RNA sequence: ACGAAUACAUUGGCAUACAUUCGUAUAACCUCACAUAACGGCAAAAGGCACAGGGUGAGGGUCUCUACGGGAAGCCUUACUUCCUUGCUACGAAUAACCUAUCUUCUUCC
Numbered sequence: 001a002c003g004a005a006u007a008c009a010u011u012g013g014c015a016u017a018c019a020u021u022c023g024u025a026u027a028a029c030c031u032c033a034c035a036u037a038a039c040g041g042c043a044a045a046a047g048g049c050a051c052a053g054g055g056u057g058a059g060g061g062u063c064u065c066u067a068c069g070g071g072a073a074g075c076c077u078u079a080c081u082u083c084c085u086u087g088c089u090a091c092g093a094a095u096a097a098c099c100u101a102u103c104u105u106c107u108u109c110c
Base pairs, nucleotide, nucleotide: 019095020094021093022092023091024090025089029060030059031058032057033056034055069085070084071083072082073081074080